[Rfam]
RNA sequence: AAGAGGAGGAAACAAAAUGAACGAAGUUCAUUUUCUAUAAAUGUUUCCGACGAAUAGCCGCCGACCGAAGGGAGGGGGCUAUACAUAUU
Numbered sequence: 001a002a003g004a005g006g007a008g009g010a011a012a013c014a015a016a017a018u019g020a021a022c023g024a025a026g027u028u029c030a031u032u033u034u035c036u037a038u039a040a041a042u043g044u045u046u047c048c049g050a051c052g053a054a055u056a057g058c059c060g061c062c063g064a065c066c067g068a069a070g071g072g073a074g075g076g077g078g079c080u081a082u083a084c085a086u087a088u089u
Stems, first nucleotide, its partner, number of pairs: 008048006016032006057079003061075002065071002
RNA: GA-cis RNA